[Rfam]
RNA: THF-II riboswitch (folE RNA)
Organism: Oryzicola mucosus
RNA sequence: CCGUUCAACUCGUUUCCACCAUCAAGAGUGGAGACUACGGGAG
Numbered sequence: 001c002c003g004u005u006c007a008a009c010u011c012g013u014u015u016c017c018a019c020c021a022u023c024a025a026g027a028g029u030g031g032a033g034a035c036u037a038c039g040g041g042a043g
Stems, first nucleotide, its partner, number of pairs: 001040004012035007